The family of this 68-nucleotide sequence from Molossus molossus is "mir-290 microRNA precursor family".
Lineage of the source: Eukaryota > Metazoa > Chordata > Gnathostomata > Molossus.
Rfam links the family to the GO terms miRNA-mediated post-transcriptional gene silencing and RISC complex.
Nucleotides: 068
Base pairs, nucleotide, nucleotide: 004065006063007062008061009060010059011058012057016053017052018051020049021048022047023046024045025044026042027041
Number, partner (000 for none) and nucleotide at each position: 001000g002000u003000g004065g005000a006063a007062c008061u009060c010059a011058a012057a013000c014000a015000a016053u017052g018051g019000c020049g021048g022047c023046a024045c025044u026042u027041c028000c029000c030000u031000c032000a033000g034000g035000a036000g037000c038000a039000c040000a041027g042026a043000a044025a045024g046023u047022g048021c049020c050000c051018c052017c053016a054000c055000a056000g057012u058011u059010u060009g061008a062007g063006u064000c065004c066000c067000a068000c